The record is a 75-nucleotide RNA from Kineococcus xinjiangensis, which matches "c-di-GMP-I-GGC riboswitch aptamer" in Rfam. The family is grouped with related families in Rfam's "c-di-GMP_I riboswitch clan".
RNA sequence: AUCGACAAGGGCAAACCCGUCGCGAGGCGGGGGCGCAAAGCCACGGAGCUCACCGAGCCAGCCGGGUUGCCGAAA
Numbered sequence: 001a002u003c004g005a006c007a008a009g010g011g012c013a014a015a016c017c018c019g020u021c022g023c024g025a026g027g028c029g030g031g032g033g034c035g036c037a038a039a040g041c042c043a044c045g046g047a048g049c050u051c052a053c054c055g056a057g058c059c060a061g062c063c064g065g066g067u068u069g070c071c072g073a074a075a
Stems, first nucleotide, its partner, number of pairs: 003072002011036002016031006034061001039068004044064003048058002